[Rfam]
RNA sequence: AAAAGAAUAGAGCUCCGAGCCUUAUUAAUCUAAAGACUGCGGUUCAUGAUUAUAGGGCCUAUAGGUAUAAGUGGAAACGCUUAUGCCUCCCCGUAUUGUGGAAAGGAGUACUUAUUUAGCUGUU
Dot-bracket structure: ...(.(.....(((((..((((((.(((((....(((....)))...)))))))))))....(((((((((((....)))))))))))((.........))...))))).....).).......
A member of the RNA family "Molybdenum/Tungsten riboswitch aptamer (Moco RNA motif)" from Syntrophomonas wolfei, 124 nucleotides long.
The organism belongs to Syntrophomonas wolfei subsp. wolfei, within Bacteria.
Rfam's curators put it in the seed alignment.